[Rfam]
RNA sequence: UCUAUAACUCAAGAUAUGGGCUGACACAUGAACAGUGUCUGGGCUGUAAGACAGAUUCAGGCUUUCCGUUGUUGCUAUAAUUUGGACUUGAAAAUGGCCUUUUUAAAUCUUGGACUCCAUAAUGAAAGUUGUAGGCCUAUGUCUUAACCUUUCCAUC
Numbered sequence: 001u002c003u004a005u006a007a008c009u010c011a012a013g014a015u016a017u018g019g020g021c022u023g024a025c026a027c028a029u030g031a032a033c034a035g036u037g038u039c040u041g042g043g044c045u046g047u048a049a050g051a052c053a054g055a056u057u058c059a060g061g062c063u064u065u066c067c068g069u070u071g072u073u074g075c076u077a078u079a080a081u082u083u084g085g086a087c088u089u090g091a092a093a094a095u096g097g098c099c100u101u102u103u104u105a106a107a108u109c110u111u112g113g114a115c116u117c118c119a120u121a122a123u124g125a126a127a128g129u130u131g132u133a134g135g136c137c138u139a140u141g142u143c144u145u146a147a148c149c150u151u152u153c154c155a156u157c
Base pairs, nucleotide, nucleotide: 003155006152007151009146011145012144013143014142015141016140017139018138019137020136021134022133023132024130026129027128029127035123036122037120041118042117043116045114048111049110050109051108054104055103060098062097063096069090071087072086073085
Rfam assigns this 157-nucleotide RNA sequence from Populus tomentosa to the family "MIR2912 microRNA precursor family".
A search with the family's covariance model found it, with a score of 86 bits.